[Rfam]
Rfam assigns this 89-nucleotide RNA sequence to the family "DUF3800-VII RNA". Pairs were carried over by alignment from the consensus structure, which is taken from published work.
RNA sequence: GGUAGGCAUGUGCAGGAUUAAUCGUAGGUUGUCCGAAAGGACAGCAGCGCAUAUAGCGUGGGUUCCUACGACCUGAGGUCUGCCGUUUU
Numbered sequence: 001g002g003u004a005g006g007c008a009u010g011u012g013c014a015g016g017a018u019u020a021a022u023c024g025u026a027g028g029u030u031g032u033c034c035g036a037a038a039g040g041a042c043a044g045c046a047g048c049g050c051a052u053a054u055a056g057c058g059u060g061g062g063u064u065c066c067u068a069c070g071a072c073c074u075g076a077g078g079u080c081u082g083c084c085g086u087u088u089u
Base pairs, nucleotide, nucleotide: 001084002083003082004081005080006079007078011076013075014074015073016072022071023070024069025068026067027066028045029044030043031042032041033040034039048058049057050056